The record is a 92-nucleotide RNA sequence from Triticum urartu, which matches "MIR1120/MIR1122 microRNA precursor family" in Rfam. Gene Ontology terms of the family: miRNA-mediated post-transcriptional gene silencing and RISC complex. The organism belongs to Triticum, within Eukaryota. The base pairs follow the family's consensus structure, which was predicted with RNAalifold. The literature on the family includes a 2007 paper in Genome Biol by Yao et al., "Cloning and characterization of microRNAs from wheat (Triticum aestivum L.)".
RNA sequence: GUACUCCCUCCGUCCCAUAAUAUAAGAGCGUUUUUUACACUAGUGUAGUGUAGUGUAAAAAACGCUCUUAUUUUAUGGGACGGAGGGAGUAG
Numbered sequence: 001g002u003a004c005u006c007c008c009u010c011c012g013u014c015c016c017a018u019a020a021u022a023u024a025a026g027a028g029c030g031u032u033u034u035u036u037a038c039a040c041u042a043g044u045g046u047a048g049u050g051u052a053g054u055g056u057a058a059a060a061a062a063c064g065c066u067c068u069u070a071u072u073u074u075a076u077g078g079g080a081c082g083g084a085g086g087g088a089g090u091a092g
Base pairs, nucleotide, nucleotide: 003090004089005088007086008085009084010083011082013080014079015078016077017076019074020073022071023070024069025068026067027066028065029064030063031062032061033060034059035058036057037056038055039054040053041052